[Rfam]
RNA sequence: CGGGUGGUCAACAAACGCGGGCCUGGCGGAGCGCGGUGGCGCUCGGAGACCGCAAGGCGACCAGGAGCAGCUGGACCCCCGGCUGCGCGCCAGUCAGAGCUCGCGGCGCAGCGCGGCCCGCCGGCCACUCAGCGUCCAUCCGUCCCGAGUGCAGCCCGGAGUGCAGCCAGCGGGCAUGACCAACCCACCCUGGGCACCGCUGCCGGCAUUCGCAGGCCGCGGGAGAAGAAAGCCCAGCCCCGCUCGGCCCCGAGCCAGGAGGUGACUCGGAGCGAGGAGGUGAACAGGGAGGAAAUGGCGGCAGCCGGGCUCACGGUGACUGUCACCCACAGCAAUGAGAAG
Number, nucleotide and partner (000 for none) at each position: 001c000002g000003g000004g000005u000006g000007g000008u000009c000010a000011a000012c000013a000014a000015a000016c000017g000018c000019g000020g100021g000022c000023c097024u096025g095026g094027c093028g000029g000030a000031g000032c000033g000034c000035g000036g000037u092038g091039g090040c089041g088042c087043u000044c052045g051046g050047a000048g000049a000050c046051c045052g044053c000054a000055a000056g000057g000058c000059g000060a000061c082062c081063a000064g079065g078066a000067g076068c000069a000070g000071c000072u000073g000074g000075a000076c067077c000078c065079c064080c000081g062082g061083c000084u000085g000086c000087g042088c041089g040090c039091c038092a037093g027094u026095c025096a024097g023098a000099g000100c020101u000102c000103g000104c000105g000106g000107c000108g000109c000110a000111g000112c000113g000114c000115g000116g000117c000118c000119c000120g323121c322122c000123g320124g000125c318126c000127a000128c000129u000130c000131a000132g000133c000134g000135u000136c000137c000138a000139u000140c000141c000142g175143u174144c173145c172146c000147g000148a000149g000150u000151g000152c000153a000154g000155c000156c000157c000158g000159g000160a000161g000162u000163g000164c000165a000166g000167c000168c000169a000170g000171c000172g145173g144174g143175c142176a000177u000178g000179a000180c000181c000182a000183a000184c000185c000186c000187a000188c000189c000190c000191u000192g211193g210194g209195c000196a000197c206198c205199g204200c000201u000202g000203c000204c199205g198206g197207c000208a000209u194210u193211c192212g000213c000214a000215g000216g000217c000218c000219g000220c000221g000222g000223g000224a000225g000226a000227a000228g000229a000230a000231a000232g000233c000234c000235c000236a000237g000238c000239c000240c000241c000242g255243c254244u253245c252246g000247g000248c000249c000250c000251c000252g245253a244254g243255c242256c000257a000258g000259g000260a000261g000262g000263u000264g000265a000266c000267u000268c000269g000270g000271a000272g000273c000274g000275a000276g000277g000278a000279g000280g000281u000282g000283a000284a000285c000286a000287g000288g000289g000290a000291g000292g000293a000294a000295a000296u000297g000298g000299c000300g000301g000302c000303a000304g000305c000306c000307g000308g000309g000310c000311u000312c000313a000314c000315g000316g000317u000318g125319a000320c123321u000322g121323u120324c000325a000326c000327c000328c000329a000330c000331a000332g000333c000334a000335a000336u000337g000338a000339g000340a000341a000342g000
Rfam assigns this 342-nucleotide RNA from Prolemur simus to the family "Bag-1 internal ribosome entry site (IRES)".
Rfam's curators write: This family represents the bag-1 internal ribosome entry site (IRES). When expressed the BAG-1 protein is known to enhance the anti-apoptotic properties of Bcl-2. Although bag-1 translation usually occurs via a cap-dependent mechanism it has been found to contain a IRES in its 5' UTR. Translation via the IRES has been found to be common following heat shock when cap-dependent scanning is compromised.
The organism belongs to Prolemur, within Eukaryota.
Rfam links the family to the GO term ribosome binding.
The base pairs follow the family's consensus structure, which was predicted with PFOLD.
The literature on the family includes a 2001 paper in Oncogene by Coldwell et al., "The p36 isoform of BAG-1 is translated by internal ribosome entry following heat shock".